[Rfam]
RNA sequence: UCCGCCCCGUCAGGAGAGAGCGCCGCGCCCGCAACGGGCCGCCGGCGCCGCCGAAGGCGCAGGGGAUUCCCGAACGCUCAGGCAAAAGGACUGGCAAGG
Dot-bracket structure: .....(..(((((......((((((.................)))))).(((((..(((...((.....))...))))).))).......)))))..).
About this RNA
Shown here is a 99-nucleotide RNA sequence from Paracidovorax avenae, a member of the family "Glycine riboswitch aptamer". The source organism's lineage runs through Bacteria, Pseudomonadota, Betaproteobacteria, Comamonadaceae and Paracidovorax avenae.